[Rfam]
RNA: Magnesium riboswitch aptamer (Magnesium responsive RNA element)
RNA sequence: CUUACCGGAGGCGUUAUGGAUCCCGAUCCCACACCUCUCUCCUGCGCGAGAGUAAUUUUCCGGUAAGCCAGUUUUUGCUGCCUUACCGAUGCUGUGAGGCAGUGACAUCCC
Numbered sequence: 001c002u003u004a005c006c007g008g009a010g011g012c013g014u015u016a017u018g019g020a021u022c023c024c025g026a027u028c029c030c031a032c033a034c035c036u037c038u039c040u041c042c043u044g045c046g047c048g049a050g051a052g053u054a055a056u057u058u059u060c061c062g063g064u065a066a067g068c069c070a071g072u073u074u075u076u077g078c079u080g081c082c083u084u085a086c087c088g089a090u091g092c093u094g095u096g097a098g099g100c101a102g103u104g105a106c107a108u109c110c111c
Base pairs, nucleotide, nucleotide: 001067002066003065004064005063006062007061008060009059010058011057017031018030019029036051037050038049039048077103078102079101080100081099082098083097084096085095086094